[Rfam]
RNA sequence: CUUCCCCUCCCUUACUCCAGUCACUCUGUCCCCAGUAGAGUGGUCUGGCAUUGACAGGGGAUACAGCACCACGGCUCUCUCGCCUCUCUCAUCUAAGACAUUCAUCUUAAAUUAGGCUUGUGAGAGAGCUGACAAU
Numbered sequence: 001c002u003u004c005c006c007c008u009c010c011c012u013u014a015c016u017c018c019a020g021u022c023a024c025u026c027u028g029u030c031c032c033c034a035g036u037a038g039a040g041u042g043g044u045c046u047g048g049c050a051u052u053g054a055c056a057g058g059g060g061a062u063a064c065a066g067c068a069c070c071a072c073g074g075c076u077c078u079c080u081c082g083c084c085u086c087u088c089u090c091a092u093c094u095a096a097g098a099c100a101u102u103c104a105u106c107u108u109a110a111a112u113u114a115g116g117c118u119u120g121u122g123a124g125a126g127a128g129c130u131g132a133c134a135a136u
Stems, first nucleotide, its partner, number of pairs: 003061006011053001017048004022043001023041005073130003077126002086115001089114001091112001092110001094109004